The record is a 78-nucleotide RNA from Erpetoichthys calabaricus, which matches "mir-460 microRNA precursor family" in Rfam. Taxonomically the source falls in Erpetoichthys (Eukaryota, Teleostomi, Actinopterygii, Polypteriformes). Rfam links the family to the GO terms miRNA-mediated post-transcriptional gene silencing and RISC complex. The literature on the family includes a 2005 paper in Genes Dev by Chen et al., "The developmental miRNA profiles of zebrafish as determined by small RNA cloning". It scores 76 bits against the family's covariance model.
RNA sequence: CUUUACAGUAUCCUCAUUGUACAUGCUGUGUGCUUUUAUAAUUGUACACACAGCGCAUGCAAUGUGGACAUCGUGGAG
Numbered sequence: 001c002u003u004u005a006c007a008g009u010a011u012c013c014u015c016a017u018u019g020u021a022c023a024u025g026c027u028g029u030g031u032g033c034u035u036u037u038a039u040a041a042u043u044g045u046a047c048a049c050a051c052a053g054c055g056c057a058u059g060c061a062a063u064g065u066g067g068a069c070a071u072c073g074u075g076g077a078g
Stems, first nucleotide, its partner, number of pairs: 012067002015064007024055001026053006